The record is a 125-nucleotide RNA from Lactuca saligna, which matches "MIR396 microRNA precursor family" in Rfam. Its family is annotated with RISC complex and miRNA-mediated post-transcriptional gene silencing in the Gene Ontology.

[Rfam]
RNA sequence: UGCCAUGUUUUUCCACAGCUUUCUUGAACUUUUCAAUCUACGUACAUAUGUACUCGAGCACUUCUGAUCUAUUUCUUGUGCGAUGCUAUUAGAAAGCUCAAGAAAGCUGUGGGAGGACAUGGCGA
Numbered sequence: 001u002g003c004c005a006u007g008u009u010u011u012u013c014c015a016c017a018g019c020u021u022u023c024u025u026g027a028a029c030u031u032u033u034c035a036a037u038c039u040a041c042g043u044a045c046a047u048a049u050g051u052a053c054u055c056g057a058g059c060a061c062u063u064c065u066g067a068u069c070u071a072u073u074u075c076u077u078g079u080g081c082g083a084u085g086c087u088a089u090u091a092g093a094a095a096g097c098u099c100a101a102g103a104a105a106g107c108u109g110u111g112g113g114a115g116g117a118c119a120u121g122g123c124g125a
Base pairs, nucleotide, nucleotide: 003122004121005120006119007118013112014111015110017108018107019106020105021104022103024101025100026099027098029096030095031094032093033092